This 191-nucleotide RNA from Halobacteroides halobius belongs to the Rfam family "Group II catalytic intron D1-D4-5".
For this family Rfam cites "The ins and outs of group II introns" (Bonen and Vogel, Trends Genet, 2001).
About the family: Group II introns are found in rRNA, tRNA and mRNA of organelles in fungi, plants and protists, and also in mRNA in bacteria.
The organism belongs to Halobacteroides halobius, within Bacteria.

RNA sequence: UAGAACUAAGAGACCAAACCAAUCAAAUGAUGGGGUAACGCCCUGAAGGGUUGGCAUUAAUACUCCGAAUUGCACCAUAGUAAUUAAGUACUAUGAUGUGAUAAGCUCGGUGAAGUCGGGGGAAGGUUAUCGUAAUUAUACGAAAGCUACCUUAGUCGGGUGGUAUAACUGAUACCUCGGAUGUCCACAAA
Numbered sequence: 001u002a003g004a005a006c007u008a009a010g011a012g013a014c015c016a017a018a019c020c021a022a023u024c025a026a027a028u029g030a031u032g033g034g035g036u037a038a039c040g041c042c043c044u045g046a047a048g049g050g051u052u053g054g055c056a057u058u059a060a061u062a063c064u065c066c067g068a069a070u071u072g073c074a075c076c077a078u079a080g081u082a083a084u085u086a087a088g089u090a091c092u093a094u095g096a097u098g099u100g101a102u103a104a105g106c107u108c109g110g111u112g113a114a115g116u117c118g119g120g121g122g123a124a125g126g127u128u129a130u131c132g133u134a135a136u137u138a139u140a141c142g143a144a145a146g147c148u149a150c151c152u153u154a155g156u157c158g159g160g161u162g163g164u165a166u167a168a169c170u171g172a173u174a175c176c177u178c179g180g181a182u183g184u185c186c187a188c189a190a191a
Stems, first nucleotide, its partner, number of pairs: 019054006032044004055183004065110004069102006076095007117179005125170006131142003146164007